[Rfam]
RNA sequence: GCUGUACGGUGAUGAUAACUUGGCUCCCUCUACUGAGAAUUGUGAGGAAAACAACCACAAAUUGUUACCCUUUUGAUCUGAGUGUACAGC
Numbered sequence: 001g002c003u004g005u006a007c008g009g010u011g012a013u014g015a016u017a018a019c020u021u022g023g024c025u026c027c028c029u030c031u032a033c034u035g036a037g038a039a040u041u042g043u044g045a046g047g048a049a050a051a052c053a054a055c056c057a058c059a060a061a062u063u064g065u066u067a068c069c070c071u072u073u074u075g076a077u078c079u080g081a082g083u084g085u086a087c088a089g090c
Stems, first nucleotide, its partner, number of pairs: 001090008
Rfam assigns this 90-nucleotide RNA from Thamnophis sirtalis to the family "Small nucleolar RNA SNORD100". By type it is a C/D-box small nucleolar RNA. It scores 66 bits against the family's covariance model. Its family is annotated with nucleolus and RNA processing in the Gene Ontology.